Description:
The record is a 334-nucleotide RNA from Pararhodospirillum oryzae, which matches "Alphaproteobacteria transfer-messenger RNA" in Rfam. The literature on the family includes a 1997 paper in RNA by Felden et al., "Probing the structure of the Escherichia coli 10Sa RNA (tmRNA)". The organism belongs to Pararhodospirillum, within Bacteria. It is annotated as a non-coding RNA gene.
[Rfam]
RNA sequence: CCUCUUUCCCUGGCCGCGAUCCCUCCCUAUAGUAAGAGGGCCGGUGCAAGCCGGCUAUGACACUAAACCCCACGCGGAAUAAGCGUUGCGGACCCGGGGGCGGUACCCGGCGCCUCCACCAGUCCCGAUCCCUUGGGCCCCAUCCCUUGGAAUCGGCCUCGGGGGCGAAAUAGGAUCGACGUGCGUGGUAAAGGCCUGGGUUGUGUUCGGCAUGGUACCACCGUUAUCGGACCAACUCUGACAAGUGCCAACGAUAACGUUGAACUUGCCGCUGCGGCCUAAAAAUCCGUAAGCGCGGUUCGGGGGGGCACCGGGCAACAGAAGCCCCCCCACU
Number, nucleotide and partner (000 for none) at each position: 001c000002c000003u000004c000005u000006u000007u000008c000009c000010c000011u000012g000013g000014c000015c000016g000017c000018g000019a000020u000021c000022c000023c000024u000025c000026c000027c000028u000029a000030u000031a000032g000033u000034a000035a000036g000037a000038g000039g000040g055041c054042c053043g052044g051045u000046g000047c000048a000049a000050g000051c044052c043053g042054g041055c040056u000057a000058u000059g207060a206061c205062a204063c203064u000065a000066a000067a000068c000069c200070c199071c198072a197073c000074g195075c194076g000077g000078a000079a000080u000081a000082a000083g000084c185085g184086u183087u000088g182089c181090g180091g000092a000093c000094c110095c109096g108097g107098g106099g000100g000101c000102g000103g000104u000105a000106c098107c097108c096109g095110g094111c167112g166113c165114c164115u163116c162117c161118a000119c000120c000121a000122g000123u000124c000125c000126c000127g000128a000129u000130c000131c000132c000133u000134u000135g000136g000137g000138c000139c000140c000141c000142a000143u000144c000145c000146c000147u000148u000149g000150g000151a000152a000153u000154c000155g000156g000157c000158c000159u000160c000161g117162g116163g115164g114165g113166c112167g111168a000169a000170a000171u000172a000173g000174g000175a000176u000177c000178g000179a000180c090181g089182u088183g086184c085185g084186u000187g000188g000189u000190a000191a000192a000193g000194g075195c074196c000197u072198g071199g070200g069201u000202u000203g063204u062205g061206u060207u059208c223209g222210g221211c000212a000213u234214g233215g232216u000217a000218c230219c229220a000221c210222c209223g208224u000225u000226a000227u000228c000229g219230g218231a000232c215233c214234a213235a000236c000237u000238c000239u000240g000241a000242c000243a000244a000245g000246u000247g000248c000249c000250a000251a000252c000253g000254a000255u000256a000257a000258c000259g000260u000261u000262g000263a000264a000265c000266u000267u000268g000269c000270c000271g000272c000273u000274g000275c000276g000277g000278c000279c000280u000281a000282a000283a000284a000285a000286u000287c000288c000289g000290u000291a000292a000293g000294c000295g000296c313297g312298g311299u310300u000301c000302g000303g000304g330305g329306g328307g327308g326309c000310a299311c298312c297313g296314g000315g000316c000317a000318a000319c000320a000321g000322a000323a000324g000325c000326c308327c307328c306329c305330c304331c000332a000333c000334u000